[Rfam]
RNA: mir-355 microRNA precursor family
RNA sequence: UUUGUUUUAGCCUGAGCUAUGUGUUAUUGCACAUACAUAGCUACUUGUUAAAACAUACC
Numbered sequence: 001u002u003u004g005u006u007u008u009a010g011c012c013u014g015a016g017c018u019a020u021g022u023g024u025u026a027u028u029g030c031a032c033a034u035a036c037a038u039a040g041c042u043a044c045u046u047g048u049u050a051a052a053a054c055a056u057a058c059c
Base pairs, nucleotide, nucleotide: 001057003055004054005053006052007051008050009049010048011047014044015042016041017040018039019038020037021036022035023034024033